A member of the RNA family "Actino-pnp RNA" from Actinomadura logoneensis, 75 nucleotides long.
It scores 62 bits against the family's covariance model.
[Rfam]
RNA sequence: GCCGGUCCUCGGUAGUGGCCUCCGGACGGCCGCCGGAAACGCGGCCCGUUCCGGACGCUUCGAUCGAAGACCGGC
Numbered sequence: 001g002c003c004g005g006u007c008c009u010c011g012g013u014a015g016u017g018g019c020c021u022c023c024g025g026a027c028g029g030c031c032g033c034c035g036g037a038a039a040c041g042c043g044g045c046c047c048g049u050u051c052c053g054g055a056c057g058c059u060u061c062g063a064u065c066g067a068a069g070a071c072c073g074g075c
Stems, first nucleotide, its partner, number of pairs: 001075007009067005017059003021055006027048003

The family's RNA type in Rfam is cis-regulatory element. The base pairs follow the family's consensus structure, which is taken from published work.